[Rfam]
RNA sequence: CCCCUUGAGCGGGGGCCUCGCACACCUUAUCUAUGAGGCGUCCGGGCAACCGGACUAUGGGCAUAAACGCGCACGGAAUAAGCGGAUCGGACCCGGGGGCGGUACCCGGCGGCUCCACCAAUCAUCCCUCGUUGGGGGACGGAACGGGGCCGAAACAGGAUCGACGAACGUGUAAAGGUGUUUGCUUUGUCCCGGUGAGGUACCACCGUUAUCGGUCCAAAACGCAUAGUUGCCAACGACAACCGUGCUCCGGCGAUGGCCCUCGCCGCCUAACGGCGGUAGAGACCUGAGCCAAAGUCCUGGGGAAUAAGCCCCUCAGGCGGGGUUCGCAGGCACCUGGCAACAGAAGCCUGCACU
Number, nucleotide and partner (000 for none) at each position: 001c000002c000003c000004c000005u000006u000007g000008a000009g000010c000011g000012g000013g000014g000015g000016c000017c000018u000019c000020g000021c000022a000023c000024a000025c000026c000027u000028u000029a000030u000031c000032u000033a000034u000035g000036a000037g000038g000039c000040g055041u054042c053043c052044g051045g000046g000047c000048a000049a000050c000051c044052g043053g042054a041055c040056u000057a000058u000059g192060g191061g190062c189063a188064u000065a000066a000067a000068c000069g185070c184071g181072c180073a179074c178075g000076g000077a000078a000079u000080a000081a000082g000083c170084g169085g000086a000087u167088c166089g165090g000091a000092c000093c109094c108095g107096g106097g105098g000099g000100c000101g000102g000103u000104a000105c097106c096107c095108g094109g093110c152111g151112g150113c149114u148115c147116c146117a000118c000119c000120a000121a000122u000123c000124a000125u000126c000127c000128c000129u000130c000131g000132u000133u000134g000135g000136g000137g000138g000139a000140c000141g000142g000143a000144a000145c000146g116147g115148g114149g113150c112151c111152g110153a000154a000155a000156c000157a000158g000159g000160a000161u000162c000163g000164a000165c089166g088167a087168a000169c084170g083171u000172g000173u000174a000175a000176a000177g000178g074179u073180g072181u071182u000183u000184g070185c069186u000187u000188u063189g062190u061191c060192c059193c208194g207195g206196u205197g000198a000199g218200g217201u000202a216203c215204c214205a196206c195207c194208g193209u000210u000211a000212u000213c000214g204215g203216u202217c200218c199219a000220a000221a000222a000223c000224g000225c000226a000227u000228a000229g000230u000231u000232g000233c000234c000235a000236a000237c000238g000239a000240c000241a000242a000243c000244c000245g000246u000247g000248c000249u000250c000251c000252g000253g000254c000255g000256a000257u000258g000259g000260c000261c000262c000263u000264c000265g000266c000267c000268g000269c000270c000271u000272a000273a000274c000275g000276g000277c000278g000279g000280u000281a000282g000283a000284g000285a000286c000287c000288u000289g000290a000291g000292c000293c000294a000295a000296a000297g000298u000299c000300c000301u000302g000303g000304g000305g000306a000307a000308u000309a000310a000311g000312c000313c000314c000315c000316u000317c000318a000319g000320g000321c000322g000323g338324g337325g336326u335327u000328c000329g354330c353331a352332g351333g350334c349335a326336c325337c324338u323339g000340g000341c000342a000343a000344c000345a000346g000347a000348a000349g334350c333351c332352u331353g330354c329355a000356c000357u000